[Rfam]
RNA sequence: CCAGGGGGCCGGGCAGCCGCGUUAUCCGCAAGGAUACCGAGGAAAGUCCGGGCUCCACGAAACAAGGGCGGCGGGUAAUGCCCGCCGGGUUAAAGUCUCCGGGUGCGAGCCUGGGGUCCCAAACCUAGGGAAAGUGCCACAGAGAGUAUACCGCCUCAGCUCGUCCUGAGCUUGUCGAAGGACCGGAGGUAAGGGUGAAAGGGUGCGGUAAGAGCGCACCGCGCGGCUGGCAACAGCAGCGGCAUGGUAAACCCCGUCCGGAGCAAAGCCAAAUAGGGGCGGCGCGCCGAUGGCUUUACGUCAGAGGCAGAUGUGUUUUGCAUCGAUCGUCCGGGUUGGCUGCUUGAGCCGUAUGGCAACAUGCGGUCUAGAUGAAUGGCUGCCCCUGCGCGGCCGGUCCGCCCCCAGGGAAACCUGGGUUUGGAUACCGCGCGCAGGACAGAACCCGGCUUACAGGCCCCCUGGCAAU
Numbered sequence: 001c002c003a004g005g006g007g008g009c010c011g012g013g014c015a016g017c018c019g020c021g022u023u024a025u026c027c028g029c030a031a032g033g034a035u036a037c038c039g040a041g042g043a044a045a046g047u048c049c050g051g052g053c054u055c056c057a058c059g060a061a062a063c064a065a066g067g068g069c070g071g072c073g074g075g076u077a078a079u080g081c082c083c084g085c086c087g088g089g090u091u092a093a094a095g096u097c098u099c100c101g102g103g104u105g106c107g108a109g110c111c112u113g114g115g116g117u118c119c120c121a122a123a124c125c126u127a128g129g130g131a132a133a134g135u136g137c138c139a140c141a142g143a144g145a146g147u148a149u150a151c152c153g154c155c156u157c158a159g160c161u162c163g164u165c166c167u168g169a170g171c172u173u174g175u176c177g178a179a180g181g182a183c184c185g186g187a188g189g190u191a192a193g194g195g196u197g198a199a200a201g202g203g204u205g206c207g208g209u210a211a212g213a214g215c216g217c218a219c220c221g222c223g224c225g226g227c228u229g230g231c232a233a234c235a236g237c238a239g240c241g242g243c244a245u246g247g248u249a250a251a252c253c254c255c256g257u258c259c260g261g262a263g264c265a266a267a268g269c270c271a272a273a274u275a276g277g278g279g280c281g282g283c284g285c286g287c288c289g290a291u292g293g294c295u296u297u298a299c300g301u302c303a304g305a306g307g308c309a310g311a312u313g314u315g316u317u318u319u320g321c322a323u324c325g326a327u328c329g330u331c332c333g334g335g336u337u338g339g340c341u342g343c344u345u346g347a348g349c350c351g352u353a354u355g356g357c358a359a360c361a362u363g364c365g366g367u368c369u370a371g372a373u374g375a376a377u378g379g380c381u382g383c384c385c386c387u388g389c390g391c392g393g394c395c396g397g398u399c400c401g402c403c404c405c406c407a408g409g410g411a412a413a414c415c416u417g418g419g420u421u422u423g424g425a426u427a428c429c430g431c432g433c434g435c436a437g438g439a440c441a442g443a444a445c446c447c448g449g450c451u452u453a454c455a456g457g458c459c460c461c462c463u464g465g466c467a468a469u
Stems, first nucleotide, its partner, number of pairs: 001465010011454001012384007020039002023036005044452003048449005053263004061319002064316001066259005071085005086128001087126004129254002134252002136248003151194002153190005159184001161182001202220006221243001222241003226237004267341004277332006310324005348367008